RNA: U1A polyadenylation inhibition element (PIE)
Organism: Pipistrellus kuhlii
RNA sequence: UCACAACGCAUUGAACCCGGACUCUGUCCCCAGACAUCGCACCUGGUGCCGUUAAGCUGGAACUAAACUGUUUU
Number, nucleotide and partner (000 for none) at each position: 001u000002c000003a000004c000005a052006a000007c000008g049009c048010a000011u000012u000013g000014a000015a000016c000017c046018c045019g044020g043021a000022c000023u034024c033025u032026g031027u000028c000029c000030c000031c026032a025033g024034a023035c000036a000037u000038c000039g000040c000041a000042c000043c020044u019045g018046g017047u000048g009049c008050c000051g000052u005053u000054a000055a000056g000057c000058u000059g000060g000061a000062a000063c000064u000065a000066a000067a000068c000069u000070g000071u000072u000073u000074u000